[Rfam]
RNA sequence: GCGGGUCAAAUGCAGUAGCCGAAAGGUGAACCGGACCCGUGCGAAAGGAGAGAUACUUCCCGUGGGUGAAAAUCCCCGAAACUGCCCUUUGAUAGUCCUACGCGGACGCUGCUUGCAUGGCGGGUUAUUGUGCUACCCCGUUUCAUGCGCAGGGCUUACGCAGUUUAGAGGCACACCGACAACGCAACUGUACGGAGGGCGAAUACUUUUUAUAUGACCA
Numbered sequence: 001g002c003g004g005g006u007c008a009a010a011u012g013c014a015g016u017a018g019c020c021g022a023a024a025g026g027u028g029a030a031c032c033g034g035a036c037c038c039g040u041g042c043g044a045a046a047g048g049a050g051a052g053a054u055a056c057u058u059c060c061c062g063u064g065g066g067u068g069a070a071a072a073u074c075c076c077c078g079a080a081a082c083u084g085c086c087c088u089u090u091g092a093u094a095g096u097c098c099u100a101c102g103c104g105g106a107c108g109c110u111g112c113u114u115g116c117a118u119g120g121c122g123g124g125u126u127a128u129u130g131u132g133c134u135a136c137c138c139c140g141u142u143u144c145a146u147g148c149g150c151a152g153g154g155c156u157u158a159c160g161c162a163g164u165u166u167a168g169a170g171g172c173a174c175a176c177c178g179a180c181a182a183c184g185c186a187a188c189u190g191u192a193c194g195g196a197g198g199g200c201g202a203a204u205a206c207u208u209u210u211u212a213u214a215u216g217a218c219c220a
Stems, first nucleotide, its partner, number of pairs: 004037004019026002064077003084200008093192001094156006101149003108116002119142006160191005166186001168177001
This 220-nucleotide RNA belongs to the Rfam family "RT-2 RNA". The family's RNA type in Rfam is small RNA. It is one of the family's seed sequences. The family's consensus secondary structure is taken from published work.